A member of the RNA family "MIR2629 microRNA precursor family" from Medicago truncatula, 69 nucleotides long. The match comes from Rfam's covariance-model search (66 bits). The base pairs follow the family's consensus structure, which was predicted with RNAalifold.
RNA sequence: UAACGAAGUUUUCAUCGGUAAUUAACUGCAGCCAGUUCCAUAAUUCGGCAGUUAACUGCCGAGGAGUAU
Numbered sequence: 001u002a003a004c005g006a007a008g009u010u011u012u013c014a015u016c017g018g019u020a021a022u023u024a025a026c027u028g029c030a031g032c033c034a035g036u037u038c039c040a041u042a043a044u045u046c047g048g049c050a051g052u053u054a055a056c057u058g059c060c061g062a063g064g065a066g067u068a069u
Stems, first nucleotide, its partner, number of pairs: 012065002015062006022055008